[Rfam]
Overview: Rfam assigns this 72-nucleotide RNA sequence from Bos taurus to the family "mir-129 microRNA precursor family". On this family, see Lagos-Quintana et al., Curr Biol 2002: "Identification of tissue-specific microRNAs from mouse". Gene Ontology terms of the family: gene silencing by miRNA, miRNA-mediated post-transcriptional gene silencing and synapse. The source organism's lineage runs through Eukaryota, Bilateria, Gnathostomata, Mammalia and Bos. Rfam's curators put it in the seed alignment.
RNA sequence: GGAUCUUUUUGCGGUCUGGGCUUGCUGUUCCUCUCUACAGUAGUCAGGAAGCCCUUACCCCAAAAAGUAUCU
Numbered sequence: 001g002g003a004u005c006u007u008u009u010u011g012c013g014g015u016c017u018g019g020g021c022u023u024g025c026u027g028u029u030c031c032u033c034u035c036u037a038c039a040g041u042a043g044u045c046a047g048g049a050a051g052c053c054c055u056u057a058c059c060c061c062a063a064a065a066a067g068u069a070u071c072u
Stems, first nucleotide, its partner, number of pairs: 005067007013059003018054004023049001025047002
The family's consensus secondary structure was predicted with RNAalifold.